Group II catalytic intron D1-D4-1: an 89-nucleotide RNA from Salinivirga cyanobacteriivorans.
Gene Ontology term of the family: Group II intron splicing.
For this family Rfam cites "The ins and outs of group II introns" (Bonen and Vogel, Trends Genet, 2001).
The source organism's lineage runs through Bacteria, Bacteroidota, Bacteroidia, Salinivirgaceae and Salinivirga.

RNA sequence: UGAGAACCGUAGCGAAGCGGAGCUCAUGACCGUAGAGAAUAACUCAGCCGAAGCCAUAGUAUCCCGAUACUUCUAAUUAGGAGAAGGGC
Number, nucleotide and partner (000 for none) at each position: 001u028002g027003a000004g023005a000006a000007c020008c019009g018010u017011a000012g000013c000014g000015a000016a000017g010018c009019g008020g007021a000022g000023c004024u000025c000026a000027u002028g001029a000030c000031c000032g000033u000034a000035g000036a000037g000038a000039a000040u000041a000042a000043c000044u051045c050046a000047g000048c000049c000050g045051a044052a000053g089054c088055c087056a000057u000058a000059g000060u000061a000062u082063c081064c080065c000066g078067a077068u000069a000070c000071u000072u000073c000074u000075a000076a000077u067078u066079a000080g064081g063082a062083g000084a000085a000086g000087g055088g054089c053